[Rfam]
RNA sequence: CAAGUAAGCUGGACAGCCGCGGGGCGAGGCCGAAAGGCCCGUUCUGAGGAAAGUCCGGGCUCCGCAGGGCAAGGAUAACGGGUAACACCCGCCGGGGGCGACCCUAGGAAAAGUGCAACAGAGAUAAACCGCCUUGAACCCGCAAAGCCUUUACGGCGUUGUGGGGAGAGGAGGCACAGCGAAAUGAGUGAGCUCUGCCGCUUGCGGCGGGGCGAGCGGUAUGGAGCUUGUGCCGACGAGGUAAGGGUGGAAAGGCGGAGGUAAGAGCCCGCCCGAUGACGUGGAAGCGCUCAUCGCUGUAAACUCUAUCCGGAGCAACGCCGUGGGAGGACGCAUGACCGGCCCGGUCGUCCUCAGGAGGCGGCUUGAGCGUAUCGGCAACGGUGCGUCGAGAUAGAUGGCUGUCUUAAAAGACAGAACCCGGCUUACAGGCUUGCUUGCAAC
Numbered sequence: 001c002a003a004g005u006a007a008g009c010u011g012g013a014c015a016g017c018c019g020c021g022g023g024g025c026g027a028g029g030c031c032g033a034a035a036g037g038c039c040c041g042u043u044c045u046g047a048g049g050a051a052a053g054u055c056c057g058g059g060c061u062c063c064g065c066a067g068g069g070c071a072a073g074g075a076u077a078a079c080g081g082g083u084a085a086c087a088c089c090c091g092c093c094g095g096g097g098g099c100g101a102c103c104c105u106a107g108g109a110a111a112a113g114u115g116c117a118a119c120a121g122a123g124a125u126a127a128a129c130c131g132c133c134u135u136g137a138a139c140c141c142g143c144a145a146a147g148c149c150u151u152u153a154c155g156g157c158g159u160u161g162u163g164g165g166g167a168g169a170g171g172a173g174g175c176a177c178a179g180c181g182a183a184a185u186g187a188g189u190g191a192g193c194u195c196u197g198c199c200g201c202u203u204g205c206g207g208c209g210g211g212g213c214g215a216g217c218g219g220u221a222u223g224g225a226g227c228u229u230g231u232g233c234c235g236a237c238g239a240g241g242u243a244a245g246g247g248u249g250g251a252a253a254g255g256c257g258g259a260g261g262u263a264a265g266a267g268c269c270c271g272c273c274c275g276a277u278g279a280c281g282u283g284g285a286a287g288c289g290c291u292c293a294u295c296g297c298u299g300u301a302a303a304c305u306c307u308a309u310c311c312g313g314a315g316c317a318a319c320g321c322c323g324u325g326g327g328a329g330g331a332c333g334c335a336u337g338a339c340c341g342g343c344c345c346g347g348u349c350g351u352c353c354u355c356a357g358g359a360g361g362c363g364g365c366u367u368g369a370g371c372g373u374a375u376c377g378g379c380a381a382c383g384g385u386g387c388g389u390c391g392a393g394a395u396a397g398a399u400g401g402c403u404g405u406c407u408u409a410a411a412a413g414a415c416a417g418a419a420c421c422c423g424g425c426u427u428a429c430a431g432g433c434u435u436g437c438u439u440g441c442a443a444c
Base pairs, nucleotide, nucleotide: 001440002439003438004437005436006435007434008433009432010431011429012406013405014404015403016402017401018400020046021045022044023043024042025041026040028038051427052426053425055424056423057422058421059420060315061314062313063312068345069344073311074310075309076308077307079091080090081089082088093107094105095104096103097102108306109305113304114303115300116299117298129246130245131242132241133240134239135238136237254273255272256271257270258269260268275295276294277293278292279291280289281288282287319363320362321361322360327355328354329353330352331351332350337349338348339347340346370389371388372387373386374385375384376383377382
Dot-bracket structure: ((((((((((((((((((.(((((((.(.........).)))))))....[[[.[[[[[((((....[[...(((((.((((.....)))).(((((....)))).)((...(((((...........((((((((....................................................................................................))))))..)).......(((((.(.......)))))).((((((((....))).)))))..)))..)))))))))))))...((((....((((((....((((...]]))))))))))....))))......((((((((....))))))))..........))))))).............]]]]]]]].).))))))))))....
This 444-nucleotide RNA sequence from Lawsonibacter faecis belongs to the Rfam family "Bacterial RNase P class A".
The base pairs follow the family's consensus structure, which is taken from published work.
The family's RNA type in Rfam is ribozyme.
NCBI's taxonomy places the organism under Bacteria, Bacillati, Clostridia, Oscillospiraceae, Lawsonibacter.